[Rfam]
RNA sequence: GUGCUUAUGGCAGAACCAUUCCAAGAGCUAUGACCACGAGCUGUUGAUAGCUCUGGAAAUGGCGCUGCCAUCGGCAC
Dot-bracket structure: .(((..(((.(((..(((((...((((((((...............))))))))...)))))..))).)))..))).
RNA: mir-458 microRNA precursor family